[Rfam]
RNA sequence: UUAUUAUUGGAUAGUGAUUGCCACGUGUUAUGUUCUGAUUGGUUAAUGAAAAUAACAAUUCAUUUCAUCUUUCAUGGAAUUGACAUCUAAUCAGGACAUAACACGUAACAGUCAUCAUCC
Numbered sequence: 001u002u003a004u005u006a007u008u009g010g011a012u013a014g015u016g017a018u019u020g021c022c023a024c025g026u027g028u029u030a031u032g033u034u035c036u037g038a039u040u041g042g043u044u045a046a047u048g049a050a051a052a053u054a055a056c057a058a059u060u061c062a063u064u065u066c067a068u069c070u071u072u073c074a075u076g077g078a079a080u081u082g083a084c085a086u087c088u089a090a091u092c093a094g095g096a097c098a099u100a101a102c103a104c105g106u107a108a109c110a111g112u113c114a115u116c117a118u119c120c
Stems, first nucleotide, its partner, number of pairs: 020109001023106001025104002029100003033096004038091005
RNA: MIR1520 microRNA precursor family
Organism: Glycine max